[Rfam]
RNA sequence: GUCAAUGAUGUUACAAUCCAACGUGUUUGAGGCGUAGCGGAAGCGAGAACCUGCAUUUGUGCAGGUAGAACCUACUCGUGGAAACUACGAUCCCUUGACAGAAACGAUGUAGCUGAGGC
Numbered sequence: 001g002u003c004a005a006u007g008a009u010g011u012u013a014c015a016a017u018c019c020a021a022c023g024u025g026u027u028u029g030a031g032g033c034g035u036a037g038c039g040g041a042a043g044c045g046a047g048a049a050c051c052u053g054c055a056u057u058u059g060u061g062c063a064g065g066u067a068g069a070a071c072c073u074a075c076u077c078g079u080g081g082a083a084a085c086u087a088c089g090a091u092c093c094c095u096u097g098a099c100a101g102a103a104a105c106g107a108u109g110u111a112g113c114u115g116a117g118g119c
Stems, first nucleotide, its partner, number of pairs: 001119003049066005
RNA: Small nucleolar RNA Z278